[Rfam]
RNA sequence: AUGCGCGGCAGUCUCCGAGCCAGGUCCGCCUAAGGGGAUGGUCUUCAGGGCGUCUGGCCAAAGGGUUUCGCUGGAAACGGCGAUGCCUCCCGCGUUUGGAAAGGAGAUAAUCCCGGAGUUCC
Numbered sequence: 001a002u003g004c005g006c007g008g009c010a011g012u013c014u015c016c017g018a019g020c021c022a023g024g025u026c027c028g029c030c031u032a033a034g035g036g037g038a039u040g041g042u043c044u045u046c047a048g049g050g051c052g053u054c055u056g057g058c059c060a061a062a063g064g065g066u067u068u069c070g071c072u073g074g075a076a077a078c079g080g081c082g083a084u085g086c087c088u089c090c091c092g093c094g095u096u097u098g099g100a101a102a103g104g105a106g107a108u109a110a111u112c113c114c115g116g117a118g119u120u121c122c
Base pairs, nucleotide, nucleotide: 004115011108012107013106014105015104016103019058020057021056022055023054024053025052028051029050030049034046035045036044037043063088064087065086066085068083069082070081071080072079073078089099090098
Dot-bracket structure: ...(......((((((..(((((((..(((...((((.....))))..))))))))))....((((.((((((....)))))).))))((.......))...))))))......).......
The family of this 122-nucleotide RNA from Syntrophotalea carbinolica is "Molybdenum/Tungsten riboswitch aptamer (Moco RNA motif)". Rfam links the family to the GO terms regulation of gene expression, molybdenum ion binding and tungstate binding. The base pairs follow the family's consensus structure, which is taken from published work. Rfam 15.1 lists 1,248 matches to the family in 836 species. For this family Rfam cites "in molybdenum cofactor and tungsten cofactor metabolism" (Regulski et al., Mol Microbiol, 2008).